A member of the RNA family "Small nucleolar RNA SNORD97" from Zosterops lateralis, 168 nucleotides long.
RNA sequence: UUGCCCAAUGAUUAUAGCAAGACGCGUUAUUAUGAGGACUAAUGCUGGAACUCUUUCUCCUCCUCCUCAUUCUCCUCCUCCUUUGUCCCUUCCUCUUUCACCUUUUACCCCCCUCACUUUCCUUAGGGUAUCCAGCGUCCUAUGAGCAAGACUGAGAUAUGAGGGCAA
Numbered sequence: 001u002u003g004c005c006c007a008a009u010g011a012u013u014a015u016a017g018c019a020a021g022a023c024g025c026g027u028u029a030u031u032a033u034g035a036g037g038a039c040u041a042a043u044g045c046u047g048g049a050a051c052u053c054u055u056u057c058u059c060c061u062c063c064u065c066c067u068c069a070u071u072c073u074c075c076u077c078c079u080c081c082u083u084u085g086u087c088c089c090u091u092c093c094u095c096u097u098u099c100a101c102c103u104u105u106u107a108c109c110c111c112c113c114u115c116a117c118u119u120u121c122c123u124u125a126g127g128g129u130a131u132c133c134a135g136c137g138u139c140c141u142a143u144g145a146g147c148a149a150g151a152c153u154g155a156g157a158u159a160u161g162a163g164g165g166c167a168a
Base pairs, nucleotide, nucleotide: 001168002167003166004165005164006163035054036053037052040049
Rfam links the family to the GO terms nucleolus and RNA processing.
The family's consensus secondary structure was predicted with WAR.
A reference for the family is Vitali et al. (2003), "Identification of 13 novel human modification guide RNAs", Nucleic Acids Res.